[Rfam]
RNA sequence: GGAGCAGCUUCUGGAGAGAUCGCGAUAGUUUCGCGACGCCGAAGGGUUCACAAUCUCAGGCAAAAGGACAGAAGAGUACCG
Numbered sequence: 001g002g003a004g005c006a007g008c009u010u011c012u013g014g015a016g017a018g019a020u021c022g023c024g025a026u027a028g029u030u031u032c033g034c035g036a037c038g039c040c041g042a043a044g045g046g047u048u049c050a051c052a053a054u055c056u057c058a059g060g061c062a063a064a065a066g067g068a069c070a071g072a073a074g075a076g077u078a079c080c081g
Stems, first nucleotide, its partner, number of pairs: 008074006020036004038061003041057002045055003

Record summary
A member of the RNA family "Glycine riboswitch aptamer" from Priestia megaterium, 81 nucleotides long. It scores 50 bits against the family's covariance model. NCBI's taxonomy places the organism under Bacteria, Bacillati, Caryophanales, Priestia, Priestia megaterium.